Shown here is a 596-nucleotide part of an RNA from Gnathophausia zoea, a member of the family "Eukaryotic small subunit ribosomal RNA". Rfam links the family to the GO terms structural constituent of ribosome and ribosome. Pairs were carried over by alignment from the consensus structure, which is taken from published work. The literature on the family includes a 2001 paper in Science by Yusupov et al., "Crystal structure of the ribosome at 5.5 A resolution". Rfam's curators put it in the seed alignment. The family has 90 seed sequences and 75,755 matches in Rfam 15.1.
Nucleotides: 596
Base pairs, nucleotide, nucleotide: 001586002585003584005583006582007581008580009579010578011577014454016452017451020447021414027412028411029410031409032408033407036067037066042064043063048059049058074367075366076365084290085289086288090284093283094282100277102275116147117146123139124138126136127135128134157180158179159178160177164171165170185237186236187235188234189233198225199224200223201222205214206213207212247271248270249269253265254264255263256262292338293337294336299329300328301327304326305325306324307323308322310320311319342364343363344362345361346357347356348355349354369390370389372387373386374385392403393402394401395400420445422444423443424442428440429439430438431437460491461490462489463487464486465485466484467483468482471480472479473478498519500516502514503513504512529575530574531573532572533571534570542569543568544567545566551558552557
Number, partner (000 for none) and nucleotide at each position: 001586a002585g003584u004000u005583a006582u007581a008580u009579g010578c011577u012000c013000g014454u015000c016452u017451c018000a019000a020447a021414g022000c023000c024000u025000a026000a027412g028411c029410c030000a031409u032408g033407c034000a035000u036067g037066u038000c039000u040000a041000a042064g043063u044000u045000c046000a047000g048059a049058c050000a051000a052000u053000a054000a055000a056000u057000a058049g059048u060000g061000a062000a063043a064042c065000c066037g067036c068000a069000a070000a071000a072000g073000g074367c075366u076365c077000a078000u079000u080000a081000a082000a083000u084290c085289a086288g087000u088000u089000u090284u091000u092000g093283u094282u095000u096000a097000u098000u099000u100277g101000u102275u103000a104000a105000u106000g107000a108000u109000u110000g111000a112000u113000a114000a115000u116147u117146g118000g119000a120000u121000a122000u123139c124138u125000g126136u127135g128134g129000c130000a131000a132000u133000u134128c135127u136126a137000g138124a139123g140000c141000u142000a143000a144000u145000a146117c147116a148000u149000g150000c151000a152000a153000a154000u155000a156000u157180a158179c159178u160177c161000u162000g163000a164171c165170c166000g167000a168000a169000a170165g171164g172000a173000a174000u175000a176000u177160g178159a179158g180157u181000g182000c183000u184000u185237u186236u187235a188234u189233u190000a191000g192000u193000a194000c195000c196000a197000a198225a199224c200223c201222a202000a203000u204000g205214u206213g207212g208000u209000u210000g211000g212207c213206c214205a215000c216000u217000u218000g219000g220000a221000a222201u223200g224199g225198u226000g227000a228000c229000u230000c231000u232000g233189g234188a235187u236186a237185a238000u239000a240000u241000u242000g243000c244000c245000u246000a247271g248270u249269g250000a251000a252000a253265g254264u255263g256262c257000c258000u259000a260000u261000a262256g263255u264254g265253c266000u267000g268000g269249c270248a271247c272000a273000u274000a275102a276000u277100c278000u279000u280000u281000c282094a283093a284090g285000u286000g287000u288086c289085u290084g291000c292338c293337u294336u295000a296000u297000c298000a299329g300328c301327u302000g303000c304326a305325u306324u307323g308322u309000u310320g311319g312000g313000u314000a315000c316000c317000u318000g319311c320310c321000u322308a323307c324306a325305a326304u327301g328300g329299c330000u331000g332000u333000a334000a335000c336294g337293g338292g339000u340000a341000a342364c343363g344362g345361g346357g347356a348355a349354u350000c351000a352000g353000g354349g355348u356347u357346c358000g359000a360000u361345u362344c363343c364342g365076g366075a367074g368000a369390g370389g371000g372387a373386g374385c375000c376000u377000g378000a379000g380000a381000a382000a383000c384000g385374g386373c387372u388000a389370c390369c391000a392403c393402a394401u395400c396000u397000a398000a399000g400395g401394a402393u403392g404000g405000c406000a407033g408032c409031a410029g411028g412027c413000g414021c415000g416000c417000a418000a419000a420445u421000u422444a423443c424442c425000c426000a427000a428440u429439c430438c431437c432000a433000g434000c435000a436000c437431g438430g439429g440428g441000a442424g443423g444422u445420a446000g447020u448000g449000a450000c451017g452016a453000a454014a455000a456000a457000u458000a459000a460491c461490g462489g463487u464486g465485c466484a467483a468482g469000g470000a471480u472479c473478u474000a475000u476000c477000a478473a479472g480471g481000c482468c483467u484466u485465g486464u487463a488000a489462u490461u491460g492000g493000a494000a495000u496000g497000a498519a499000u500516a501000g502514a503513g504512u505000u506000u507000a508000a509000a510000a511000a512504a513503u514502u515000g516500u517000a518000c519498u520000g521000a522000g523000u524000a525000c526000c527000a528000a529575u530574u531573g532572g533571a534570g535000g536000g537000c538000a539000a540000g541000u542569c543568u544567g545566g546000u547000g548000c549000c550000a551558g552557c553000a554000g555000c556000c557552g558551c559000g560000g561000u562000a563000a564000u565000u566545c567544c568543a569542g570534c571533u572532c573531c574530a575529a576000u577011g578010g579009c580008a581007u582006a583005u584003a585002u586001u587000a588000a589000a590000g591000u592000u593000g594000u595000u596000g